[Rfam]
RNA sequence: UAACUGAACAUGCAAAUGUUCGCUAUCAGCAGUCAGUCGAAGCCAUUUAGUACUAGAUAAUUUUGGAAUAUCUAGGAAGGGC
Numbered sequence: 001u002a003a004c005u006g007a008a009c010a011u012g013c014a015a016a017u018g019u020u021c022g023c024u025a026u027c028a029g030c031a032g033u034c035a036g037u038c039g040a041a042g043c044c045a046u047u048u049a050g051u052a053c054u055a056g057a058u059a060a061u062u063u064u065g066g067a068a069u070a071u072c073u074a075g076g077a078a079g080g081g082c
Stems, first nucleotide, its partner, number of pairs: 001025002005022007033040002042082003053075006
The family of this 82-nucleotide RNA from Virgibacillus phasianinus is "Group II catalytic intron D1-D4-1". Taxonomically the source falls in Virgibacillus (Bacteria, Bacillati, Bacillota, Bacillaceae). Rfam describes the family as follows. Group II introns are found in rRNA, tRNA and mRNA of organelles in fungi, plants and protists, and also in mRNA in bacteria. The pairing is the family consensus, mapped onto this sequence. A search with the family's covariance model found it, with a score of 40 bits.